[Rfam]
RNA: ASdes TB sRNA
RNA sequence: AGCUCGGCCGGGUCGACGCCGCGGGUGACCAUCAGGUAGUCCCGCAUCGCGAUCGCGUGCCGGCCCUC
Numbered sequence: 001a002g003c004u005c006g007g008c009c010g011g012g013u014c015g016a017c018g019c020c021g022c023g024g025g026u027g028a029c030c031a032u033c034a035g036g037u038a039g040u041c042c043c044g045c046a047u048c049g050c051g052a053u054c055g056c057g058u059g060c061c062g063g064c065c066c067u068c
Stems, first nucleotide, its partner, number of pairs: 004063003008059001011030003016026002035056001038053001040052002043049002